The record is a 183-nucleotide RNA sequence from Aegilops tauschii, which matches "U2 spliceosomal RNA" in Rfam. Its Rfam clan is "U2 clan". It is annotated as a spliceosomal small nuclear RNA. U2 is a small nuclear RNA (snRNA) component of the spliceosome (involved in pre-mRNA splicing). Complementary binding between U2 snRNA (in an area lying towards the 5' end but 3' to hairpin I) and the branchpoint sequence (BPS) of the intron results the bulging out of an unpaired adenosine, on the BPS, which initiates a nucleophilic attack at the intronic 5' splice site, thus starting the first of two transesterification reactions that mediate splicing. The match comes from Rfam's covariance-model search (127 bits). The family's consensus secondary structure is taken from published work. Taxonomically the source falls in Aegilops tauschii (Eukaryota, Magnoliopsida, Triticodae, Triticeae).

RNA sequence: AUACCUUUCUCGGCCUUUUGGCUAAGAUCAAGUGUAGUAUCUUCUUAUCAGUUUAAUAUUUGAUAUGUGGGCCAUGUGUCCACAACGAUAUUAAAUUUAUUUUUUGUGAGGGAGGGUCCAUCACAGCGGCUUGCCAUUGGGGUCCUCAGGUGUUGCACUGCAGUCCAGGCAGGCGCACCCCAA
Number, nucleotide and partner (000 for none) at each position: 001a000002u000003a000004c000005c000006u000007u000008u027009c026010u025011c000012g023013g022014c021015c020016u000017u000018u000019u000020g015021g014022c013023u012024a000025a010026g009027a008028u000029c000030a000031a000032g000033u000034g000035u000036a000037g000038u000039a000040u000041c000042u000043u000044c000045u000046u065047a064048u063049c062050a061051g060052u000053u000054u000055a000056a000057u000058a000059u000060u051061u050062g049063a048064u047065a046066u000067g083068u082069g081070g080071g079072c078073c000074a000075u000076g000077u000078g072079u071080c070081c069082a068083c067084a000085a000086c000087g000088a000089u000090a000091u000092u000093a000094a000095a000096u000097u000098u000099a000100u000101u000102u000103u000104u000105u000106g000107u000108g000109a000110g000111g000112g147113a146114g145115g144116g143117u142118c141119c140120a000121u000122c000123a000124c000125a000126g137127c000128g135129g134130c000131u000132u000133g000134c129135c128136a000137u126138u000139g000140g119141g118142g117143u116144c115145c114146u113147c112148a000149g000150g176151u175152g174153u173154u172155g000156c000157a000158c000159u000160g000161c000162a000163g000164u000165c000166c000167a000168g000169g000170c000171a000172g154173g153174c152175g151176c150177a000178c000179c000180c000181c000182a000183a000